[Rfam]
RNA sequence: GAUAACCCCAGAUUGUAGCUGGAUCGAGGGUCGGUGCCGUCACGAGGCGGACUUGUUGGAUUGCGGCAUCAUAAAUGCCACCAAACCGCAUUGCCUUCAGCACAAGCAGAAAUGCGCCUAGCCCCAGCAUGACCAGAUGGCUGCCCAGAAUAAACCCCAGUUUCUUGGCGUCAUUCCA
Numbered sequence: 001g002a003u004a005a006c007c008c009c010a011g012a013u014u015g016u017a018g019c020u021g022g023a024u025c026g027a028g029g030g031u032c033g034g035u036g037c038c039g040u041c042a043c044g045a046g047g048c049g050g051a052c053u054u055g056u057u058g059g060a061u062u063g064c065g066g067c068a069u070c071a072u073a074a075a076u077g078c079c080a081c082c083a084a085a086c087c088g089c090a091u092u093g094c095c096u097u098c099a100g101c102a103c104a105a106g107c108a109g110a111a112a113u114g115c116g117c118c119u120a121g122c123c124c125c126a127g128c129a130u131g132a133c134c135a136g137a138u139g140g141c142u143g144c145c146c147a148g149a150a151u152a153a154a155c156c157c158c159a160g161u162u163u164c165u166u167g168g169c170g171u172c173a174u175u176c177c178a
Stems, first nucleotide, its partner, number of pairs: 136175006145168004

Notes: Antisense RNA which regulates isiA expression: a 178-nucleotide RNA from Elainella sp. C42_A2020_010. A search with the family's covariance model found it, with a score of 105 bits. On this family, see Duhring et al., Proc Natl Acad Sci U S A 2006: "An internal antisense RNA regulates expression of the photosynthesis gene isiA".